RNA sequence: GCGAGAUGAAGAUAGAAAUCAUUAGUCUGUCAAUCCCCUGAUUAUCUUUGAUGUGAAACAAUGAGUCCUUACCAGGAUAUCUGAUCGC
Numbered sequence: 001g002c003g004a005g006a007u008g009a010a011g012a013u014a015g016a017a018a019u020c021a022u023u024a025g026u027c028u029g030u031c032a033a034u035c036c037c038c039u040g041a042u043u044a045u046c047u048u049u050g051a052u053g054u055g056a057a058a059c060a061a062u063g064a065g066u067c068c069u070u071a072c073c074a075g076g077a078u079a080u081c082u083g084a085u086c087g088c
Base pairs, nucleotide, nucleotide: 001088002087003086004085
Dot-bracket structure: ((((................................................................................))))